[Rfam]
RNA sequence: GGCUGGUCCAAAGUUACUGAGUUAUCUCAAUUGAUUGUACCCAUGUCAGUUUCAGAUCUAUUUCCCUGUUCUACUCUUUUCUGUCUUCUCACACAUGCACUUAACUAGUCUUAA
Numbered sequence: 001g002g003c004u005g006g007u008c009c010a011a012a013g014u015u016a017c018u019g020a021g022u023u024a025u026c027u028c029a030a031u032u033g034a035u036u037g038u039a040c041c042c043a044u045g046u047c048a049g050u051u052u053c054a055g056a057u058c059u060a061u062u063u064c065c066c067u068g069u070u071c072u073a074c075u076c077u078u079u080u081c082u083g084u085c086u087u088c089u090c091a092c093a094c095a096u097g098c099a100c101u102u103a104a105c106u107a108g109u110c111u112u113a114a
Stems, first nucleotide, its partner, number of pairs: 001110007010102002015097001018091004045075001048072002
The family of this 114-nucleotide RNA from Pan paniscus is "Y RNA".
The organism belongs to Pan, within Eukaryota.
By type it is a non-coding RNA gene.